[Rfam]
RNA sequence: CUGAAACCAAAACUCCUAGCCUCUGGGCCUACGUUGUUCUUGUGAACAAUAUGGCGCUUGGGCCGUGGCGAAGUCAGCCACCAGGGUGCAGAGCGGAAACGCUCGCAUCUCCCGACUUUGGAAGGUGUUAUGGUGCCGCAACU
Numbered sequence: 001c002u003g004a005a006a007c008c009a010a011a012a013c014u015c016c017u018a019g020c021c022u023c024u025g026g027g028c029c030u031a032c033g034u035u036g037u038u039c040u041u042g043u044g045a046a047c048a049a050u051a052u053g054g055c056g057c058u059u060g061g062g063c064c065g066u067g068g069c070g071a072a073g074u075c076a077g078c079c080a081c082c083a084g085g086g087u088g089c090a091g092a093g094c095g096g097a098a099a100c101g102c103u104c105g106c107a108u109c110u111c112c113c114g115a116c117u118u119u120g121g122a123a124g125g126u127g128u129u130a131u132g133g134u135g136c137c138g139c140a141a142c143u
Stems, first nucleotide, its partner, number of pairs: 003137001006134001011129003015125002019063004025057001027055003033050007065081005084110006091104005111121002
This 143-nucleotide RNA from Serratia proteamaculans belongs to the Rfam family "Molybdenum/Tungsten riboswitch aptamer (Moco RNA motif)". Lineage of the source: Bacteria > Pseudomonadota > Gammaproteobacteria > Serratia > Serratia proteamaculans.